[Rfam]
RNA: Methylobacterium-1 RNA
RNA sequence: AAAGUUGAAUAUGGGUUCUAAAAUAUUCUCAACAGGACGAGGGAGAAAUAACCCUCAAAUGAUAUGGAUAGUGAUUGCAUCUGCUCCAUAUUGUUACCGAAGUU
Number, nucleotide and partner (000 for none) at each position: 001a000002a000003a000004g033005u032006u031007g030008a029009a000010u000011a026012u025013g024014g000015g000016u000017u000018c000019u000020a000021a000022a000023a000024u013025a012026u011027u000028c000029u008030c007031a006032a005033c004034a000035g000036g000037a000038c000039g056040a055041g054042g053043g052044a000045g000046a000047a000048a000049u000050a000051a000052c043053c042054c041055u040056c039057a000058a095059a094060u093061g092062a091063u090064a089065u088066g087067g086068a000069u000070a085071g084072u083073g082074a000075u000076u000077g000078c000079a000080u000081c000082u073083g072084c071085u070086c067087c066088a065089u064090a063091u062092u061093g060094u059095u058096a000097c000098c000099g000100a000101a000102g000103u000104u000